RNA sequence: UCAUUUGCCGAUGCAGCAUCAUCAAGAUUCUCAUGUUCAAAAAACUUAGGGGAGCAGAUUUUUAGAAAUAUAUUUUCUGCUGCACAUGUUUUCUAUGUGAAUCUUGAAGAUGCUGCAGCUGCAAGUAA
Numbered sequence: 001u002c003a004u005u006u007g008c009c010g011a012u013g014c015a016g017c018a019u020c021a022u023c024a025a026g027a028u029u030c031u032c033a034u035g036u037u038c039a040a041a042a043a044a045c046u047u048a049g050g051g052g053a054g055c056a057g058a059u060u061u062u063u064a065g066a067a068a069u070a071u072a073u074u075u076u077c078u079g080c081u082g083c084a085c086a087u088g089u090u091u092u093c094u095a096u097g098u099g100a101a102u103c104u105u106g107a108a109g110a111u112g113c114u115g116c117a118g119c120u121g122c123a124a125g126u127a128a
Base pairs, nucleotide, nucleotide: 010119012117013116014115015114016113017112018111019110020109022107023106024105025104026103027102028101029100030099032097033096034095035094
RNA: mir-172 microRNA precursor family
Organism: Nicotiana attenuata